This 83-nucleotide RNA sequence from Arabidopsis lyrata belongs to the Rfam family "Small nucleolar RNA Z122".
Rfam classes the family as a C/D-box small nucleolar RNA.
The family's consensus secondary structure was predicted with PFOLD.
It scores 69 bits against the family's covariance model.
NCBI's taxonomy places the organism under Eukaryota, Streptophytina, Gunneridae, Pentapetalae, Arabidopsis lyrata.
The family has 23 seed sequences and 822 matches in Rfam 15.1.
[Rfam]
RNA sequence: UUUGGGAAGUGAUGAUAAGAUAUAUCAAUAUGUCAUAGGCACAUGCAAUGCUGAACGUAUUUGCACGUCAGUCUGAUCCCAUU
Numbered sequence: 001u002u003u004g005g006g007a008a009g010u011g012a013u014g015a016u017a018a019g020a021u022a023u024a025u026c027a028a029u030a031u032g033u034c035a036u037a038g039g040c041a042c043a044u045g046c047a048a049u050g051c052u053g054a055a056c057g058u059a060u061u062u063g064c065a066c067g068u069c070a071g072u073c074u075g076a077u078c079c080c081a082u083u
Base pairs, nucleotide, nucleotide: 003081004080005079006078007077